[Rfam]
RNA: mir-551 microRNA precursor family
RNA sequence: UAUCCUUAGAAACCAAAUGUGGGUGUGGCCUGGUAUGGACAUAUGGCGACCCAUCCUUGGUUUCUGAGGCUG
Dot-bracket structure: .(.((((.((((((.(....((((...(((..............))).))))....).)))))).)))).).